A member of the RNA family "mir-87 microRNA precursor family" from Aphidius gifuensis, 103 nucleotides long. Rfam links the family to the GO terms RISC complex and miRNA-mediated post-transcriptional gene silencing. Lineage of the source: Eukaryota > Arthropoda > Pancrustacea > Ichneumonoidea > Aphidius. A reference for the family is Sempere et al. (2003), "Temporal regulation of microRNA expression in Drosophila melanogaster mediated by hormonal signals and broad-Complex gene activity", Dev Biol. Pairs were carried over by alignment from the consensus structure, which was predicted with RNAalifold. It scores 50 bits against the family's covariance model.
[Rfam]
RNA sequence: UACUCUGACGCCUGAAGUUUGCUUUUUACCUUGCCAAUUUGGCUCCCAAUGUGGGGUUUUAUAUUUAAAAAAAAGGUGAGCAAAGUUUCAGGUGUGUGAGUGA
Numbered sequence: 001u002a003c004u005c006u007g008a009c010g011c012c013u014g015a016a017g018u019u020u021g022c023u024u025u026u027u028a029c030c031u032u033g034c035c036a037a038u039u040u041g042g043c044u045c046c047c048a049a050u051g052u053g054g055g056g057u058u059u060u061a062u063a064u065u066u067a068a069a070a071a072a073a074a075g076g077u078g079a080g081c082a083a084a085g086u087u088u089c090a091g092g093u094g095u096g097u098g099a100g101u102g103a
Stems, first nucleotide, its partner, number of pairs: 002101004009094007016086001018084003022080003029076003